[Rfam]
RNA sequence: GACCAAUGAUGAUAAAUCUUAAGGCUUGUUUCUCAAAACAUUCGCAGUGGCCGCGUAAGAGCUUUCGCCUUCGCCAGGCUUGAGAGCUAAUGCUGUUAUAUCCUUCCUUGGAUGUCUGAGGUU
Numbered sequence: 001g002a003c004c005a006a007u008g009a010u011g012a013u014a015a016a017u018c019u020u021a022a023g024g025c026u027u028g029u030u031u032c033u034c035a036a037a038a039c040a041u042u043c044g045c046a047g048u049g050g051c052c053g054c055g056u057a058a059g060a061g062c063u064u065u066c067g068c069c070u071u072c073g074c075c076a077g078g079c080u081u082g083a084g085a086g087c088u089a090a091u092g093c094u095g096u097u098a099u100a101u102c103c104u105u106c107c108u109u110g111g112a113u114g115u116c117u118g119a120g121g122u123u
Stems, first nucleotide, its partner, number of pairs: 001123004061087006
Dot-bracket structure: ((((........................................................((((((...............))))))................................))))
Annotation: Rfam assigns this 123-nucleotide sequence from Trifolium subterraneum to the family "Small nucleolar RNA SNORD14". The organism belongs to Trifolium, within Eukaryota. The family's consensus secondary structure was predicted with PFOLD. Rfam's curators write: U14 small nucleolar RNA (U14 snoRNA) is required for early cleavages of eukaryotic precursor rRNAs. In yeasts, this molecule possess a stem-loop region (known as the Y-domain) which is essential for function. A similar structure, but with a different consensus sequence, is found in plants, but is absent in vertebrates. Gene Ontology terms of the family: nucleolus and RNA processing. The literature on the family includes a 1996 paper in Nucleic Acids Res by Samarsky et al., "An essential domain in Saccharomyces cerevisiae U14 snoRNA is absent in vertebrates, but conserved in other yeasts".